This 93-nucleotide RNA from Dorcoceras hygrometricum belongs to the Rfam family "Small nucleolar RNA snoR26".
[Rfam]
RNA sequence: UGAGCAUCAAAGAUGAGCUUGAAUGAAAUUGUUAUCCUUGCACUAUGAUUUUCUGUGAAGAAAACUCACGGGGAGUUUUAUUCUGAGAUGCUC
Numbered sequence: 001u002g003a004g005c006a007u008c009a010a011a012g013a014u015g016a017g018c019u020u021g022a023a024u025g026a027a028a029u030u031g032u033u034a035u036c037c038u039u040g041c042a043c044u045a046u047g048a049u050u051u052u053c054u055g056u057g058a059a060g061a062a063a064a065c066u067c068a069c070g071g072g073g074a075g076u077u078u079u080a081u082u083c084u085g086a087g088a089u090g091c092u093c
Base pairs, nucleotide, nucleotide: 002093003092004091005090006089007088008087
Rfam links the family to the GO terms nucleolus and RNA processing.